[Rfam]
RNA: ZMP/ZTP riboswitch aptamer (pfl RNA motif)
Organism: Paenalicyclobacillus cellulosilyticus
RNA sequence: UGUGCACCGCAUGACUGGCGGAAGUGGGUCACCACAGGGGAGUGCGGUGUGUCUUCGUGCCGACCGCCUGGGCCUCUUGC
Numbered sequence: 001u002g003u004g005c006a007c008c009g010c011a012u013g014a015c016u017g018g019c020g021g022a023a024g025u026g027g028g029u030c031a032c033c034a035c036a037g038g039g040g041a042g043u044g045c046g047g048u049g050u051g052u053c054u055u056c057g058u059g060c061c062g063a064c065c066g067c068c069u070g071g072g073c074c075u076c077u078u079g080c
Stems, first nucleotide, its partner, number of pairs: 003051010015039002017068005024035004057075001059073003